[Rfam]
RNA sequence: ACGGAGUUCCCCGAAGAAUGAACUCCGGCAGGGUAUAGUAGAAAUUUGUAUGAUAAGUGGUAGGACUGAACGAACAUGUUUCAAU
Numbered sequence: 001a002c003g004g005a006g007u008u009c010c011c012c013g014a015a016g017a018a019u020g021a022a023c024u025c026c027g028g029c030a031g032g033g034u035a036u037a038g039u040a041g042a043a044a045u046u047u048g049u050a051u052g053a054u055a056a057g058u059g060g061u062a063g064g065a066c067u068g069a070a071c072g073a074a075c076a077u078g079u080u081u082c083a084a085u
Stems, first nucleotide, its partner, number of pairs: 007031002011028003015024002068081004